[Rfam]
A member of the RNA family "c-di-AMP riboswitch aptamer (ydaO/yuaA leader)" from Actinomyces glycerinitolerans, 160 nucleotides long.
Gene Ontology terms of the family: cyclic-di-AMP binding and regulation of gene expression.
RNA sequence: CGGUUCCGGCAGCCAUAUCCCACAUACCAAGGCAGGAACGGGGGAACCAAAAGCGGCUCCGGCAUCGACUGGAGCCUUGGGGUGAAGCCCGCGUGAUGCGGGCCGGGCGUCUCCAGUCCGAACCCGACAGCUCACCUCGUCGGCAUCUCAGAGGAGAACC
Numbered sequence: 001c002g003g004u005u006c007c008g009g010c011a012g013c014c015a016u017a018u019c020c021c022a023c024a025u026a027c028c029a030a031g032g033c034a035g036g037a038a039c040g041g042g043g044g045a046a047c048c049a050a051a052a053g054c055g056g057c058u059c060c061g062g063c064a065u066c067g068a069c070u071g072g073a074g075c076c077u078u079g080g081g082g083u084g085a086a087g088c089c090c091g092c093g094u095g096a097u098g099c100g101g102g103c104c105g106g107g108c109g110u111c112u113c114c115a116g117u118c119c120g121a122a123c124c125c126g127a128c129a130g131c132u133c134a135c136c137u138c139g140u141c142g143g144c145a146u147c148u149c150a151g152a153g154g155a156g157a158a159c160c
Base pairs, nucleotide, nucleotide: 012144013143014142018037019036020035038140039139040138041137042136043135048079049078080125081124082123088102089101090100091099105119106118107117108116
The organism belongs to Actinomyces, within Bacteria.